[Rfam]
Annotation: Rfam assigns this 58-nucleotide RNA from Motilibacter rhizosphaerae to the family "msiK RNA". The base pairs follow the family's consensus structure, which is taken from published work.
RNA sequence: GCCCGCGGCCCUCCACUCGGAUCGUCCGGCACGUUCCUGCCGGUGAAGGGGAAGCUCA
Numbered sequence: 001g002c003c004c005g006c007g008g009c010c011c012u013c014c015a016c017u018c019g020g021a022u023c024g025u026c027c028g029g030c031a032c033g034u035u036c037c038u039g040c041c042g043g044u045g046a047a048g049g050g051g052a053a054g055c056u057c058a
Stems, first nucleotide, its partner, number of pairs: 009050004014045002026043006
By type it is a cis-regulatory element.